Description:
The family of this 94-nucleotide RNA from Halanaerobium hydrogeniformans is "THF (Tetrahydrofolate) riboswitch aptamer". The base pairs follow the family's consensus structure, which is taken from published work. The match comes from Rfam's covariance-model search (69 bits). Its family is annotated with tetrahydrofolate metabolic process in the Gene Ontology.
[Rfam]
RNA sequence: GAUAGAGUAGGCUUGAGGCGUAGAGUGUUCAGAGAUGGGACGUUGCUCUGAAACGAAAGCAUUUAGCUGCGGUCUCAAUGUCGCGUCCGCUGUC
Numbered sequence: 001g002a003u004a005g006a007g008u009a010g011g012c013u014u015g016a017g018g019c020g021u022a023g024a025g026u027g028u029u030c031a032g033a034g035a036u037g038g039g040a041c042g043u044u045g046c047u048c049u050g051a052a053a054c055g056a057a058a059g060c061a062u063u064u065a066g067c068u069g070c071g072g073u074c075u076c077a078a079u080g081u082c083g084c085g086u087c088c089g090c091u092g093u094c
Base pairs, nucleotide, nucleotide: 001094002093003092004091005090010082011081012080013078014077015076016075017074018073019071020070021069025054026053028052029051030050031049032048033047034046038088039087040086041085042084058068059067060066